[Rfam]
This 99-nucleotide RNA from Sphingomonas sp. KC8 belongs to the Rfam family "Glycine riboswitch aptamer".
RNA sequence: GACAACCGCGCGGGAGAGUGCGUUGCCGGGUGACCGGAAACGCCGCCGAAGGAGCAACCGCCCCGGAAUCUCUCAGGCAGACCGGACCGCGCGGGUUUU
Number, nucleotide and partner (000 for none) at each position: 001g000002a000003c000004a000005a000006c094007c093008g092009c091010g090011c089012g088013g087014g000015a000016g000017a000018g000019u000020g043021c042022g041023u040024u000025g000026c000027c000028g000029g000030g000031u000032g000033a000034c000035c000036g000037g000038a000039a000040a023041c022042g021043c020044c000045g078046c077047c076048g074049a073050a000051g000052g072053a071054g070055c000056a000057a000058c066059c065060g000061c000062c000063c000064c000065g059066g058067a000068a000069u000070c054071u053072c052073u049074c048075a000076g047077g046078c045079a000080g000081a000082c000083c000084g000085g000086a000087c013088c012089g011090c010091g009092c008093g007094g006095g000096u000097u000098u000099u000

A search with the family's covariance model found it, with a score of 64 bits.
From the family's description: This family represents the bacterial glycine riboswitch.